This 83-nucleotide RNA from Lupinus albus belongs to the Rfam family "Small nucleolar RNA Z102/R77". Rfam links the family to the GO terms RNA processing and nucleolus. For this family Rfam cites "The high diversity of snoRNAs in plants: identification and comparative study of 120 snoRNA genes from Oryza sativa" (Chen et al., Nucleic Acids Res, 2003).

RNA sequence: GAAUGCAAUGAUGGCCAUUUGUUGUCCCUAUUGGUUUGAUCGCCUGAAUGAUGGCAUCUUGUAUUAGCUCUAUCUGAUCAUUC
Numbered sequence: 001g002a003a004u005g006c007a008a009u010g011a012u013g014g015c016c017a018u019u020u021g022u023u024g025u026c027c028c029u030a031u032u033g034g035u036u037u038g039a040u041c042g043c044c045u046g047a048a049u050g051a052u053g054g055c056a057u058c059u060u061g062u063a064u065u066a067g068c069u070c071u072a073u074c075u076g077a078u079c080a081u082u083c
Stems, first nucleotide, its partner, number of pairs: 002082004038058001042055003
Notes: Its Rfam clan is "SNORD44 clan".